[Rfam]
RNA sequence: AUAACGUCGCUGGGAAGCGGCUGGCUUCCCGUGUAUGAUUGAACCCGCAGGGCCCGCACGUUCGGGUUUGCCCUGAGGGUUCAUUUUUAU
Numbered sequence: 001a002u003a004a005c006g007u008c009g010c011u012g013g014g015a016a017g018c019g020g021c022u023g024g025c026u027u028c029c030c031g032u033g034u035a036u037g038a039u040u041g042a043a044c045c046c047g048c049a050g051g052g053c054c055c056g057c058a059c060g061u062u063c064g065g066g067u068u069u070g071c072c073c074u075g076a077g078g079g080u081u082c083a084u085u086u087u088u089a090u
Stems, first nucleotide, its partner, number of pairs: 011031008040083007

Notes:
A member of the RNA family "sroE RNA" from Pseudescherichia vulneris, 90 nucleotides long. For this family Rfam cites "RNomics in Escherichia coli detects new sRNA species and indicates parallel transcriptional output in bacteria" (Vogel et al., Nucleic Acids Res, 2003). Rfam's curators write: This family consists of a number of bacterial sroE RNA genes of around 90 bases in length. sroE is found in several Enterobacterial species but its function is unknown. NCBI's taxonomy places the organism under Bacteria, Pseudomonadota, Enterobacterales, Enterobacteriaceae, Pseudescherichia vulneris. A search with the family's covariance model found it, with a score of 71 bits.